Shown here is a 108-nucleotide RNA from Populus trichocarpa, a member of the family "mir-393 microRNA precursor family". The match comes from Rfam's covariance-model search (62 bits). Gene Ontology terms of the family: RISC complex and miRNA-mediated post-transcriptional gene silencing. The literature on the family includes a 2012 paper in J Plant Physiol by Kruszka et al., "Role of microRNAs and other sRNAs of plants in their changing environments". The base pairs follow the family's consensus structure.
RNA sequence: GCUGGAAAAUUCCUAAGGGAUCGCAUGAUCCAACGAAAAAACUAAACAUUAAUAUGAUUUAGACAUCGAGAGUCAUUAGAUCAAUGCGAUCCCUUUGGAACACUCCAG
Numbered sequence: 001g002c003u004g005g006a007a008a009a010u011u012c013c014u015a016a017g018g019g020a021u022c023g024c025a026u027g028a029u030c031c032a033a034c035g036a037a038a039a040a041a042c043u044a045a046a047c048a049u050u051a052a053u054a055u056g057a058u059u060u061a062g063a064c065a066u067c068g069a070g071a072g073u074c075a076u077u078a079g080a081u082c083a084a085u086g087c088g089a090u091c092c093c094u095u096u097g098g099a100a101c102a103c104u105c106c107a108g
Base pairs, nucleotide, nucleotide: 002108003107004106005105006104010100011099012098013097015095016094017093018092019091020090021089023087024086025085026083027082028081029080030079035074